[Rfam]
Nucleotides: 089
Base pairs, nucleotide, nucleotide: 001088002087003086004085005084006083007082010024011023012022026042027041028040029039030038065081066080067079068078069077
Number, partner (000 for none) and nucleotide at each position: 001088g002087g003086a004085g005084a006083g007082u008000u009000g010024g011023c012022a013000g014000a015000g016000c017000g018000g019000u020000a021000a022012u023011g024010c025000a026042g027041c028040g029039g030038a031000c032000u033000c034000g035000a036000a037000a038030u039029c040028c041027g042026c043000c044000g045000a046000a047000c048000c049000a050000a051000u052000g053000u054000u055000g056000a057000a058000u059000u060000g061000g062000u063000g064000c065081g066080c067079a068078g069077g070000u071000u072000c073000a074000a075000a076000u077069c078068c079067u080066g081065u082007a083006c084005u085004c086003u087002c088001c089000u

Rfam assigns this 89-nucleotide sequence from Lactobacillus delbrueckii to the family "tRNA". The source organism's lineage runs through Bacteria, Bacillati, Lactobacillales, Lactobacillaceae and Lactobacillus delbrueckii. It is one of the family's seed sequences. The base pairs follow the family's consensus structure, which is taken from published work.